[Rfam]
Shown here is a 67-nucleotide sequence from Lysinibacillus telephonicus, a member of the family "Bacillaceae-1 RNA".
The base pairs follow the family's consensus structure, which is taken from published work.
The organism belongs to Lysinibacillus, within Bacteria.
RNA sequence: AUUCAAGGAACAUGCCUAGGAGCGCCACAUCCAUGUGGCAACGGCUUCGUGAUCAACAUCGUGUUGG
Numbered sequence: 001a002u003u004c005a006a007g008g009a010a011c012a013u014g015c016c017u018a019g020g021a022g023c024g025c026c027a028c029a030u031c032c033a034u035g036u037g038g039c040a041a042c043g044g045c046u047u048c049g050u051g052a053u054c055a056a057c058a059u060c061g062u063g064u065u066g067g
Stems, first nucleotide, its partner, number of pairs: 011049001012047001014045003024039005053067005
It is annotated as a small RNA.